[Rfam]
RNA sequence: GAUUUAUAUAGAUGAGGUGAGAGAACAGGCUCGUUGACCCUCUGGCAACCCCCAAGCAAUUUGGAAAGGUGCCAAUUCCUGCCCAAUGAAGGGAAAUAUAAAAC
Numbered sequence: 001g002a003u004u005u006a007u008a009u010a011g012a013u014g015a016g017g018u019g020a021g022a023g024a025a026c027a028g029g030c031u032c033g034u035u036g037a038c039c040c041u042c043u044g045g046c047a048a049c050c051c052c053c054a055a056g057c058a059a060u061u062u063g064g065a066a067a068g069g070u071g072c073c074a075a076u077u078c079c080u081g082c083c084c085a086a087u088g089a090a091g092g093g094a095a096a097u098a099u100a101a102a103a104c
Base pairs, nucleotide, nucleotide: 001104003102004101005100006099007098008097014042015041016040017039021032022031023030026081027080028079029078044073045072046071047070049069050068052064053063054062077096082093083092084091
SAM riboswitch aptamer (S box leader): a 104-nucleotide RNA sequence from Marivirga tractuosa. Rfam links the family to the GO term regulation of gene expression. The base pairs follow the family's consensus structure, which is taken from published work.